[Rfam]
RNA: Guanidine-II riboswitch aptamer (mini-ykkC)
RNA sequence: CCUCGAGGACGACCUCGAGGCGGCGCGCGAGAUGGCGGGGGAAGACCCCG
Numbered sequence: 001c002c003u004c005g006a007g008g009a010c011g012a013c014c015u016c017g018a019g020g021c022g023g024c025g026c027g028c029g030a031g032a033u034g035g036c037g038g039g040g041g042a043a044g045a046c047c048c049c050g
Base pairs, nucleotide, nucleotide: 001020002019003018004017005016006015007014008013038049039048040047041046